[Rfam]
A member of the RNA family "pemK RNA" from Clostridium sp. C105KSO13, 58 nucleotides long. It scores 47 bits against the family's covariance model.

RNA sequence: AUAAUGAUACUUCCGGAGGUAGCUGCUCCGGUCUGAAAAGAUGGUGAGAUACCAAUGA
Numbered sequence: 001a002u003a004a005u006g007a008u009a010c011u012u013c014c015g016g017a018g019g020u021a022g023c024u025g026c027u028c029c030g031g032u033c034u035g036a037a038a039a040g041a042u043g044g045u046g047a048g049a050u051a052c053c054a055a056u057g058a
Stems, first nucleotide, its partner, number of pairs: 012055001013031006032041003042054003